Notes:
The family of this 47-nucleotide sequence is "L31-Actinobacteria ribosomal protein leader". Rfam classes the family as a cis-regulatory leader. The family's consensus secondary structure is taken from published work. Clan: Ribosomal Protein L31 Leader clan.

[Rfam]
RNA sequence: GCGGUUCCGGUUCACGCACGUGGUCAACCACGGGCGACCCGGCGGCC
Numbered sequence: 001g002c003g004g005u006u007c008c009g010g011u012u013c014a015c016g017c018a019c020g021u022g023g024u025c026a027a028c029c030a031c032g033g034g035c036g037a038c039c040c041g042g043c044g045g046c047c
Stems, first nucleotide, its partner, number of pairs: 003047003007042004015036003019032005